[Rfam]
RNA sequence: CAAGCCUGCGCGGGAGAGCGCCCUGGCACCCAGUCCAGGGCCCCUGAAGGAGCAAGCCCUCCCCGCGAACCUCUCAAGGCAAAGGACCGCGUGGGUAAA
Numbered sequence: 001c002a003a004g005c006c007u008g009c010g011c012g013g014g015a016g017a018g019c020g021c022c023c024u025g026g027c028a029c030c031c032a033g034u035c036c037a038g039g040g041c042c043c044c045u046g047a048a049g050g051a052g053c054a055a056g057c058c059c060u061c062c063c064c065g066c067g068a069a070c071c072u073c074u075c076a077a078g079g080c081a082a083a084g085g086a087c088c089g090c091g092u093g094g095g096u097a098a099a
Stems, first nucleotide, its partner, number of pairs: 006094008020041006043079003046075002050073003056066002
RNA: Glycine riboswitch aptamer
Organism: Sinosporangium siamense